[Rfam]
Rfam assigns this 127-nucleotide RNA from Populus tomentosa to the family "MIR480 microRNA precursor family".
The family has 69 seed sequences and 3,070 matches in Rfam 15.1.
Rfam links the family to the GO terms miRNA-mediated post-transcriptional gene silencing and RISC complex.
The literature on the family includes a 2005 paper in Plant Cell by Lu et al., "Novel and mechanical stress-responsive MicroRNAs in Populus trichocarpa that are absent from Arabidopsis".
RNA sequence: AGUUUUAAUUAGAAAAAACUAUCAUGCAGCUAUGAUAAAUUUAUAAUUGAUUGCUUAGAAUCACACUUUAUGUCAAGACAGGAUACAUCAAUUUUACUCAUGGCAUGUUGUCUAUCAUAUCUUGAAU
Dot-bracket structure: ...((.(((..(..(..((...(((...(((......................................................................))))))..)).)..)..)).).))..